[Rfam]
RNA sequence: GCUGCCACUUGCACCUGCUGCUGGUGCCCAGCGCCAGUCCUGAUUGCUUGGCACUGUCAGCGGGUGCGAGUGGUGGCUG
Numbered sequence: 001g002c003u004g005c006c007a008c009u010u011g012c013a014c015c016u017g018c019u020g021c022u023g024g025u026g027c028c029c030a031g032c033g034c035c036a037g038u039c040c041u042g043a044u045u046g047c048u049u050g051g052c053a054c055u056g057u058c059a060g061c062g063g064g065u066g067c068g069a070g071u072g073g074u075g076g077c078u079g
Base pairs, nucleotide, nucleotide: 004074005073006072007071008070009069010068011067012066013065014064015063016062017061018060019059020058022056023055024054025053026052027051028050

Shown here is a 79-nucleotide sequence from Cnephaeus nilssonii, a member of the family "mir-9198 microRNA precursor family". Its family is annotated with RISC complex and miRNA-mediated post-transcriptional gene silencing in the Gene Ontology. Rfam 15.1 lists 64 matches to the family in 7 species.